[Rfam]
RNA sequence: UCGCCCCGGCCACCGAGCCGGGGUGAUGUGCAACCCCCGGUACCUGAUCCGGCCGGGGUUC
Numbered sequence: 001u002c003g004c005c006c007c008g009g010c011c012a013c014c015g016a017g018c019c020g021g022g023g024u025g026a027u028g029u030g031c032a033a034c035c036c037c038c039g040g041u042a043c044c045u046g047a048u049c050c051g052g053c054c055g056g057g058g059u060u061c
Stems, first nucleotide, its partner, number of pairs: 001026009032060002035058007
The family of this 61-nucleotide RNA sequence from Caldimonas brevitalea is "L17-Actino-Proteobacteria ribosomal protein leader".
The organism belongs to Caldimonas, within Bacteria.
By type it is a cis-regulatory leader.
The literature on the family includes a 2020 paper in BMC Microbiol by Eckert and Weinberg, "Discovery of 20 novel ribosomal leader candidates in bacteria and archaea".